[Rfam]
RNA sequence: AGUAAGGAUAGAGGAGCAAAAACCAUGAGUACAUAUGUGGAAGAGAGUGAGCUCUUUUGAAGCAUAUGAAAAGGGGAAUUUGCCGAAGCUUUAAUGAUUCUCACAAUCGUGAAGCUGGUUCUGAUAUUUAAAAGAUGCAGAGCUGUCAUAUAGGAGACUAUAUGGAGGGCUAUCUCUGAC
Numbered sequence: 001a002g003u004a005a006g007g008a009u010a011g012a013g014g015a016g017c018a019a020a021a022a023c024c025a026u027g028a029g030u031a032c033a034u035a036u037g038u039g040g041a042a043g044a045g046a047g048u049g050a051g052c053u054c055u056u057u058u059g060a061a062g063c064a065u066a067u068g069a070a071a072a073g074g075g076g077a078a079u080u081u082g083c084c085g086a087a088g089c090u091u092u093a094a095u096g097a098u099u100c101u102c103a104c105a106a107u108c109g110u111g112a113a114g115c116u117g118g119u120u121c122u123g124a125u126a127u128u129u130a131a132a133a134g135a136u137g138c139a140g141a142g143c144u145g146u147c148a149u150a151u152a153g154g155a156g157a158c159u160a161u162a163u164g165g166a167g168g169g170c171u172a173u174c175u176c177u178g179a180c
Stems, first nucleotide, its partner, number of pairs: 006175006016083005023076002032068007087116007095109005117144007125137004146165007
The record is a 180-nucleotide sequence from Alkalibacillus haloalkaliphilus, which matches "Lysine riboswitch aptamer" in Rfam.
Rfam's curators write: Riboswitches are metabolite binding domains within certain messenger RNAs that serve as precision sensors for their corresponding targets. Allosteric rearrangement of mRNA structure is mediated by ligand binding, and this results in modulation of gene expression. This family includes riboswitches that sense lysine in a number of genes involved in lysine metabolism, including lysC.
Lineage of the source: Bacteria > Bacillati > Bacillota > Caryophanales > Alkalibacillus.